[Rfam]
A member of the RNA family "Guanidine-II riboswitch aptamer (mini-ykkC)" from Tolumonas auensis, 50 nucleotides long. Pairs were carried over by alignment from the consensus structure, which is taken from published work.
RNA sequence: GCGCAAGGACGACCUUGAGCCGCUCCCUGAUUUUUUGCGGGACGACCCGA
Numbered sequence: 001g002c003g004c005a006a007g008g009a010c011g012a013c014c015u016u017g018a019g020c021c022g023c024u025c026c027c028u029g030a031u032u033u034u035u036u037g038c039g040g041g042a043c044g045a046c047c048c049g050a
Base pairs, nucleotide, nucleotide: 001020002019004017005016006015007014008013038049039048040047041046

A search with the family's covariance model found it, with a score of 38 bits. Rfam describes the family as follows. Simpler in structure and has fewer highly conserved nucleotide positions than the ykkC-yxkD leader. NCBI's taxonomy places the organism under Bacteria, Pseudomonadati, Pseudomonadota, Aeromonadales, Tolumonas auensis.